[Rfam]
RNA sequence: CCGCGGCGCAGGCUUCAACCGGCGUCGUGGCUUUAACCUGAGCAGUGGCUCGCAAGGCCGUCGCUCUUAUUUUGAAGAAAAAGACCAGCAGGGGCAUCCGGGCUGGUACCCGGACUAUCUGCGUGAUCCCUGGUGACUUGACAUGGUCGCUGCACACGACUGUUUCAGCGUUGCCCUGGUGUCUUCGCCGGUGGUGUCCCCUUACCGAGGGUGACCA
Numbered sequence: 001c002c003g004c005g006g007c008g009c010a011g012g013c014u015u016c017a018a019c020c021g022g023c024g025u026c027g028u029g030g031c032u033u034u035a036a037c038c039u040g041a042g043c044a045g046u047g048g049c050u051c052g053c054a055a056g057g058c059c060g061u062c063g064c065u066c067u068u069a070u071u072u073u074g075a076a077g078a079a080a081a082a083g084a085c086c087a088g089c090a091g092g093g094g095c096a097u098c099c100g101g102g103c104u105g106g107u108a109c110c111c112g113g114a115c116u117a118u119c120u121g122c123g124u125g126a127u128c129c130c131u132g133g134u135g136a137c138u139u140g141a142c143a144u145g146g147u148c149g150c151u152g153c154a155c156a157c158g159a160c161u162g163u164u165u166c167a168g169c170g171u172u173g174c175c176c177u178g179g180u181g182u183c184u185u186c187g188c189c190g191g192u193g194g195u196g197u198c199c200c201c202u203u204a205c206c207g208a209g210g211g212u213g214a215c216c217a
Base pairs, nucleotide, nucleotide: 001030002029003028004027005026006025007024008023009022011020012019040066041065042064043063045061046060048058049057050056090202091201092200093199094198095196096195097114098113099112100111101110102109115194116193117192118191119190121188122187123186125183126182128179129178132175133174134173135172136171138168139167140166141165145161146160147159148158149157